[Rfam]
RNA sequence: UGGCAUGUUAAACCAAGAGUUGUGGCUUAGCCGGUGGCCACAAGAUCUCCAACAACAUGCAAGAAUGAGAUGGGAAGGACUUUGACUUCCCAGCCAUUGGUAGCUGAGGAUGUCACUCGACCUUCCUACAUUC
Numbered sequence: 001u002g003g004c005a006u007g008u009u010a011a012a013c014c015a016a017g018a019g020u021u022g023u024g025g026c027u028u029a030g031c032c033g034g035u036g037g038c039c040a041c042a043a044g045a046u047c048u049c050c051a052a053c054a055a056c057a058u059g060c061a062a063g064a065a066u067g068a069g070a071u072g073g074g075a076a077g078g079a080c081u082u083u084g085a086c087u088u089c090c091c092a093g094c095c096a097u098u099g100g101u102a103g104c105u106g107a108g109g110a111u112g113u114c115a116c117u118c119g120a121c122c123u124u125c126c127u128a129c130a131u132u133c
Stems, first nucleotide, its partner, number of pairs: 019038005073126006089112001091106004